[Rfam]
RNA: glmS glucosamine-6-phosphate activated ribozyme aptamer
Organism: Fundicoccus ignavus
RNA sequence: UAAAACAGGAUAGCGCCAGACCUUAAAAAUUUAAGGUGACGAGGAUUGGGUUUAUCGAAAGUUCGGCGGGUGACCCAAGGUUGUGCAGUCUACAGACAGUGUUAAAAACCAUAUGCGAGUAUGAAACAAAGACACUGACAGCACCUAAA
Numbered sequence: 001u002a003a004a005a006c007a008g009g010a011u012a013g014c015g016c017c018a019g020a021c022c023u024u025a026a027a028a029a030u031u032u033a034a035g036g037u038g039a040c041g042a043g044g045a046u047u048g049g050g051u052u053u054a055u056c057g058a059a060a061g062u063u064c065g066g067c068g069g070g071u072g073a074c075c076c077a078a079g080g081u082u083g084u085g086c087a088g089u090c091u092a093c094a095g096a097c098a099g100u101g102u103u104a105a106a107a108a109c110c111a112u113a114u115g116c117g118a119g120u121a122u123g124a125a126a127c128a129a130a131g132a133c134a135c136u137g138a139c140a141g142c143a144c145c146u147a148a149a
Base pairs, nucleotide, nucleotide: 020037021036022035023034024033025032026031047077048076049075050074051073055066056065057064058063078091079090080089081088082087095139097137098136099135100134101133110123111122112121113120114119